[Rfam]
A member of the RNA family "SAM riboswitch aptamer (S box leader)" from Salinibacter ruber, 119 nucleotides long. The base pairs follow the family's consensus structure, which is taken from published work. Its family is annotated with regulation of gene expression in the Gene Ontology. The match comes from Rfam's covariance-model search (81 bits). The source organism's lineage runs through Bacteria, Rhodothermota, Salinibacteraceae, Salinibacter and Salinibacter ruber.
RNA sequence: GUCUCAUCAAGAACGACUGAGGGAACAGGCCCGAUGACGUCGUGGCAACCGGACCCCUCCACGCGAGGGGUCGUCCUGGUGCCAACUCCUGCCCCGCCCCGCGUGGGGACAGAUGAGAG
Numbered sequence: 001g002u003c004u005c006a007u008c009a010a011g012a013a014c015g016a017c018u019g020a021g022g023g024a025a026c027a028g029g030c031c032c033g034a035u036g037a038c039g040u041c042g043u044g045g046c047a048a049c050c051g052g053a054c055c056c057c058u059c060c061a062c063g064c065g066a067g068g069g070g071u072c073g074u075c076c077u078g079g080u081g082c083c084a085a086c087u088c089c090u091g092c093c094c095c096g097c098c099c100c101g102c103g104u105g106g107g108g109a110c111a112g113a114u115g116a117g118a119g
Stems, first nucleotide, its partner, number of pairs: 002118007013043005021032003026091004044083004049079002051076004087111001092108006